[Rfam]
RNA sequence: GUCCUUCCUUCUUGGCGCUUCUAUCUAUUGAAUGAUAGAAGUGUAUGUAGUGGAAGGUACAUAAUGUCCUUUGGAUAUUCGGGUCAGCUUCGGUGCUAUUCUGUUCACUGUCGAGUAGUAUCAUCCUCUGGGCUCGAGACAGUU
Numbered sequence: 001g002u003c004c005u006u007c008c009u010u011c012u013u014g015g016c017g018c019u020u021c022u023a024u025c026u027a028u029u030g031a032a033u034g035a036u037a038g039a040a041g042u043g044u045a046u047g048u049a050g051u052g053g054a055a056g057g058u059a060c061a062u063a064a065u066g067u068c069c070u071u072u073g074g075a076u077a078u079u080c081g082g083g084u085c086a087g088c089u090u091c092g093g094u095g096c097u098a099u100u101c102u103g104u105u106c107a108c109u110g111u112c113g114a115g116u117a118g119u120a121u122c123a124u125c126c127u128c129u130g131g132g133c134u135c136g137a138g139a140c141a142g143u144u
Base pairs, nucleotide, nucleotide: 003057004056005055006054007053008052010050015044016043017042018041021038022037023036024035066076067075068074078138079137080136081135082134083133084132085131092122093121096118097117098116099115100114101113

The record is a 144-nucleotide RNA sequence from Angiostrongylus costaricensis, which matches "Nematode snoRNA ceN88" in Rfam.
The family's consensus secondary structure was predicted with RNAalifold.
Gene Ontology terms of the family: RNA processing and nucleolus.
The literature on the family includes a 2007 paper in BMC Mol Biol by Jia et al., "Systematic identification of non-coding RNA 2,2,7-trimethylguanosine cap structures in Caenorhabditis elegans".
The match comes from Rfam's covariance-model search (85 bits).
It is annotated as an H/ACA-box small nucleolar RNA.